[Rfam]
RNA sequence: CCCACCAGCAUGCCGAACCCUGCCGCUGACUCGGGAUCCAACACUUUCCAGUUGGCAGGGACGGGGGAACCAAGUUUCCGCGACUUCAGUGAAGUCUUGGGGUUAAGUCAAUAUCACCUCCGUUCCAUCAAGGGUGAUCUUGGCCGGGCAUCUCCAGCCCGAACCCGACAGCUCACCCCGCAGGCAUCGGAGAGGCAAUAG
Numbered sequence: 001c002c003c004a005c006c007a008g009c010a011u012g013c014c015g016a017a018c019c020c021u022g023c024c025g026c027u028g029a030c031u032c033g034g035g036a037u038c039c040a041a042c043a044c045u046u047u048c049c050a051g052u053u054g055g056c057a058g059g060g061a062c063g064g065g066g067g068a069a070c071c072a073a074g075u076u077u078c079c080g081c082g083a084c085u086u087c088a089g090u091g092a093a094g095u096c097u098u099g100g101g102g103u104u105a106a107g108u109c110a111a112u113a114u115c116a117c118c119u120c121c122g123u124u125c126c127a128u129c130a131a132g133g134g135u136g137a138u139c140u141u142g143g144c145c146g147g148g149c150a151u152c153u154c155c156a157g158c159c160c161g162a163a164c165c166c167g168a169c170a171g172c173u174c175a176c177c178c179c180g181c182a183g184g185c186a187u188c189g190g191a192g193a194g195g196c197a198a199u200a201g
Stems, first nucleotide, its partner, number of pairs: 011186004018060008062180005071099004100166003108143004146160004
The record is a 201-nucleotide sequence from Arthrobacter ulcerisalmonis, which matches "c-di-AMP riboswitch aptamer (ydaO/yuaA leader)" in Rfam. The literature on the family includes a 2004 paper in Proc Natl Acad Sci U S A by Barrick et al., "New RNA motifs suggest an expanded scope for riboswitches in bacterial genetic control". Taxonomically the source falls in Arthrobacter (Bacteria, Bacillati, Micrococcales, Micrococcaceae). Rfam describes the family as follows. This family represents a conserved RNA structure found upstream of the ydaO and yuaA genes in Bacillus subtilis and related genes in other bacteria.